[Rfam]
RNA sequence: UAGCCGGGCUGUAGAGAUGCGCGGUUCGGCCGGAUUUAUCAGCAUCGCAAACAAUGAGGUGUUAUAUGGCACUUACUGCCAGUGAGAAAGCUCAAAUCGUUACAGAUUUUCAGCAAGGUGAA
Number, nucleotide and partner (000 for none) at each position: 001u000002a000003g030004c029005c028006g027007g026008g025009c024010u023011g022012u021013a000014g000015a000016g000017a000018u000019g000020c000021g012022c011023g010024g009025u008026u007027c006028g005029g004030c003031c000032g000033g000034a000035u000036u000037u000038a000039u000040c000041a000042g000043c000044a000045u000046c000047g000048c000049a000050a000051a000052c000053a000054a000055u000056g000057a074058g073059g072060u071061g070062u000063u000064a000065u000066a000067u000068g000069g000070c061071a060072c059073u058074u057075a000076c000077u000078g000079c000080c000081a000082g000083u000084g000085a000086g000087a000088a000089a000090g000091c000092u000093c000094a000095a000096a000097u000098c000099g000100u000101u000102a000103c000104a000105g000106a000107u000108u000109u000110u000111c000112a000113g000114c000115a000116a000117g000118g000119u000120g000121a000122a000

This 122-nucleotide sequence from Marinobacter litoralis belongs to the Rfam family "Ribosomal S15 leader". About the family: The E. coli Ribosomal S15 gene 5' UTR can form two alternative structures. Rfam links the family to the GO term regulation of translation, ncRNA-mediated. The match comes from Rfam's covariance-model search (44 bits). On this family, see Benard et al., Biochimie 1996: "Pseudoknot and translational control in the expression of the S15 ribosomal protein". Lineage of the source: Bacteria > Pseudomonadota > Gammaproteobacteria > Pseudomonadales > Marinobacter. Rfam classes the family as a cis-regulatory leader.